Source information: Histidine operon leader: a 124-nucleotide RNA sequence from Photorhabdus laumondii. The base pairs follow the family's consensus structure, which is taken from published work. By type it is a cis-regulatory leader. Lineage of the source: Bacteria > Pseudomonadota > Gammaproteobacteria > Photorhabdus > Photorhabdus laumondii subsp. laumondii. Rfam's curators write: At least 6 amino acid operons are known to be regulated by attenuation. In each a leader sequence of 150-200 bp is found upstream of the first gene in the operon. This leader sequence can assume two different secondary structures known as the terminator and the anti-terminator structure. In each case the leader also codes for very short peptide sequence that is rich in the end product amino acid of the operon. The terminator structure is recognised as a termination signal for RNA polymerase and the operon is not transcribed. This structure forms when the cell has an excess of the regulatory amino acid and ribosome movement over the leader transcript is not impeded. When there is a deficiency of the charged tRNA of the regulatory amino acid the ribosome translating the leader peptide stalls and the antiterminator structure can form. This allows RNA polymerase to transcribe the operon. In the Rfam alignment the consensus structure is of the terminator structure.
RNA sequence: UUACCACCAUCAUCAUCCUGAUUAGUCUUUCAGGCGGUUGUGUGCUGGAAGACGUUUAACGGGUCUUCCGGUGGCAUGAAUGCGAUAAAAACCCCCGGAAGGAUCCUUCCGGGGGUUUUUUUAU
Numbered sequence: 001u002u003a004c005c006a007c008c009a010u011c012a013u014c015a016u017c018c019u020g021a022u023u024a025g026u027c028u029u030u031c032a033g034g035c036g037g038u039u040g041u042g043u044g045c046u047g048g049a050a051g052a053c054g055u056u057u058a059a060c061g062g063g064u065c066u067u068c069c070g071g072u073g074g075c076a077u078g079a080a081u082g083c084g085a086u087a088a089a090a091a092c093c094c095c096c097g098g099a100a101g102g103a104u105c106c107u108u109c110c111g112g113g114g115g116u117u118u119u120u121u122u123a124u
Stems, first nucleotide, its partner, number of pairs: 008044003011040002014037001017034005045071008087121005093115004098110001100108003